[Rfam]
RNA sequence: AAGACAUAAAGUCAAUUAUCACCCUCCGAUUGCUUAUUGCAACCGCCCACACUUCAGUGGCGGUUU
Numbered sequence: 001a002a003g004a005c006a007u008a009a010a011g012u013c014a015a016u017u018a019u020c021a022c023c024c025u026c027c028g029a030u031u032g033c034u035u036a037u038u039g040c041a042a043c044c045g046c047c048c049a050c051a052c053u054u055c056a057g058u059g060g061c062g063g064u065u066u
Stems, first nucleotide, its partner, number of pairs: 003013003041065007
The record is a 66-nucleotide RNA sequence from Crocosphaera subtropica, which matches "Nitrogen stress-induced RNA 4" in Rfam.
The sequence is in the family's curated seed alignment.
About the family: Former name SyR12, is a cyanobacterial non-coding RNA which plays role in the regulation of Glutamine synthetase (GS), a key enzyme in biological nitrogen assimilation. NsiR4 interacts with the 5'UTR of the mRNA of the GS inactivating factor IF7 (gifA mRNA) and reduces its expression. NsiR4 expression is under positive control of the nitrogen control transcription factor (NtcA). NsR4 is a first example of an sRNA controlling the assimilation of a micronutrient.
Lineage of the source: Bacteria > Bacillati > Oscillatoriophycideae > Aphanothecaceae > Crocosphaera subtropica.
Its family is annotated with posttranscriptional regulation of gene expression in the Gene Ontology.